[Rfam]
RNA sequence: AUGAUGCGUUGAUGAAUUAUGAAUCUAAUCACAUGUCAGACUUCAGAGGUUCUUCGAAUCAAUGAGAUUACAAUUCAUAAAUCUGAGCAUAU
Numbered sequence: 001a002u003g004a005u006g007c008g009u010u011g012a013u014g015a016a017u018u019a020u021g022a023a024u025c026u027a028a029u030c031a032c033a034u035g036u037c038a039g040a041c042u043u044c045a046g047a048g049g050u051u052c053u054u055c056g057a058a059u060c061a062a063u064g065a066g067a068u069u070a071c072a073a074u075u076c077a078u079a080a081a082u083c084u085g086a087g088c089a090u091a092u
Base pairs, nucleotide, nucleotide: 001092002091004090005089006088007087048060049059050058051057